Notes:
Shown here is an 80-nucleotide sequence from Paenibacillus solani, a member of the family "ZMP/ZTP riboswitch aptamer (pfl RNA motif)". A search with the family's covariance model found it, with a score of 58 bits. The source organism's lineage runs through Bacteria, Bacillati, Bacillota, Caryophanales and Paenibacillus. Its family is annotated with regulation of purine nucleotide biosynthetic process and one-carbon metabolic process in the Gene Ontology.
[Rfam]
RNA sequence: UUAUCUAUGUGUUACUGGCGUAGCUUGGGGUACCAAGAGGGAGCACAUAGGAUCAUAUGCCGUACGCCUGGGCAAGAGGU
Numbered sequence: 001u002u003a004u005c006u007a008u009g010u011g012u013u014a015c016u017g018g019c020g021u022a023g024c025u026u027g028g029g030g031u032a033c034c035a036a037g038a039g040g041g042a043g044c045a046c047a048u049a050g051g052a053u054c055a056u057a058u059g060c061c062g063u064a065c066g067c068c069u070g071g072g073c074a075a076g077a078g079g080u
Base pairs, nucleotide, nucleotide: 004051005050006049007048008047009046010045011044012043015040016039017068018067019066020065021064025036026035027034028033058074059073060072061071